Nucleotides: 067
Stems, first nucleotide, its partner, number of pairs: 010031008045066006
Number, partner (000 for none) and nucleotide at each position: 001000a002000g003000a004000g005000a006000a007000a008000a009000g010031a011030c012029a013028g014027a015026c016025u017024u018000c019000a020000g021000u022000c023000u024017g025016a026015g027014u028013u029012u030011g031010u032000g033000g034000a035000g036000a037000u038000g039000a040000g041000u042000g043000u044000a045066a046065a047064u048063c049062u050061g051000g052000c053000a054000u055000a056000g057000c058000a059000u060000a061050c062049a063048g064047g065046u066045u067000a